[Rfam]
This 146-nucleotide RNA from Streptomyces griseoflavus belongs to the Rfam family "Streptomyces-metH RNA". It is one of the family's seed sequences. By type it is a small RNA.
RNA sequence: AUCGUCCGCCCCGUGGACGCCCUGAACAUCGGGGCGAGGUCCCGGAUACCCUGACGGGGUGCGCCCAGCCGGGGACGCUCCGACGACGGGUUUCCCGGGCAGCCGCAAAGCCGACAGCCGUCGCACCUGAGGGAGCCCCGUACAUG
Numbered sequence: 001a002u003c004g005u006c007c008g009c010c011c012c013g014u015g016g017a018c019g020c021c022c023u024g025a026a027c028a029u030c031g032g033g034g035c036g037a038g039g040u041c042c043c044g045g046a047u048a049c050c051c052u053g054a055c056g057g058g059g060u061g062c063g064c065c066c067a068g069c070c071g072g073g074g075a076c077g078c079u080c081c082g083a084c085g086a087c088g089g090g091u092u093u094c095c096c097g098g099g100c101a102g103c104c105g106c107a108a109a110g111c112c113g114a115c116a117g118c119c120g121u122c123g124c125a126c127c128u129g130a131g132g133g134a135g136c137c138c139c140g141u142a143c144a145u146g
Stems, first nucleotide, its partner, number of pairs: 060107004068100003110124002113122003